[Rfam]
Shown here is a 95-nucleotide sequence from Acetobacterium paludosum, a member of the family "c-di-GMP-I riboswitch aptamer". About the family: GEMM was predicted in a large-scale screen for bacterial structured RNA regulatory elements. The base pairs follow the family's consensus structure, which is taken from published work. Taxonomically the source falls in Acetobacterium (Bacteria, Bacillati, Bacillota, Eubacteriales).
RNA sequence: CAUAAUAUGAGGCAUAACAAGUGAAAGCUUGCGACGCAAAGCUACAGGGUCUAAGUUUGGUGGAGGACAUCAGGAUAGGACAGCCAGCUGCCACA
Number, nucleotide and partner (000 for none) at each position: 001c000002a000003u000004a000005a000006u000007a000008u000009g000010a000011g000012g037013c036014a000015u000016a000017a000018c031019a030020a029021g028022u027023g000024a000025a000026a000027g022028c021029u020030u019031g018032c000033g000034a000035c000036g013037c012038a000039a000040a089041g088042c087043u086044a000045c000046a000047g085048g084049g081050u080051c079052u000053a000054a000055g000056u075057u074058u073059g000060g000061u000062g000063g000064a000065g000066g000067a000068c000069a000070u000071c000072a000073g058074g057075a056076u000077a000078g000079g051080a050081c049082a000083g000084c048085c047086a043087g042088c041089u040090g000091c000092c000093a000094c000095a000